GA-cis RNA: an 82-nucleotide RNA sequence. The sequence is in the family's curated seed alignment. It is annotated as a small RNA.

RNA sequence: UUGAGGCCUUGCAGGCUGCAAAGCAGCAUUGAUCAUGCAAGGCCGACUUGCCGCCGAACACAGUGAGGGGGCGUUACCAAAA
Numbered sequence: 001u002u003g004a005g006g007c008c009u010u011g012c013a014g015g016c017u018g019c020a021a022a023g024c025a026g027c028a029u030u031g032a033u034c035a036u037g038c039a040a041g042g043c044c045g046a047c048u049u050g051c052c053g054c055c056g057a058a059c060a061c062a063g064u065g066a067g068g069g070g071g072c073g074u075u076a077c078c079a080a081a082a
Base pairs, nucleotide, nucleotide: 005044006043007042008041009040010039013029015027016026017025018024050072051071052070054068055067058064059063
Dot-bracket structure: ....((((((..(.((((.....)))).).........)))))).....(((.((..((...))..)).)))..........